[Rfam]
RNA: U4 spliceosomal RNA
Organism: Cebus imitator
RNA sequence: AGCUUUGCGCACUGGCAGUAUCAUAGCCAAUGAGGUUUAUCCAAGGUGCGAUUACUGCCAAUUGAAAACUUUUCCCAACACCCCACCAUGACGACUUGAAAUAUAGCAGCGUUGGCAAUUUUUGGCAGUCUCUACGGAGA
Numbered sequence: 001a002g003c004u005u006u007g008c009g010c011a012c013u014g015g016c017a018g019u020a021u022c023a024u025a026g027c028c029a030a031u032g033a034g035g036u037u038u039a040u041c042c043a044a045g046g047u048g049c050g051a052u053u054a055c056u057g058c059c060a061a062u063u064g065a066a067a068a069c070u071u072u073u074c075c076c077a078a079c080a081c082c083c084c085a086c087c088a089u090g091a092c093g094a095c096u097u098g099a100a101a102u103a104u105a106g107c108a109g110c111g112u113u114g115g116c117a118a119u120u121u122u123u124g125g126c127a128g129u130c131u132c133u134a135c136g137g138a139g140a
Base pairs, nucleotide, nucleotide: 020052021051022050024048026047027046028045034042035041086115087114088112089111090110093107096103129140130139131138132137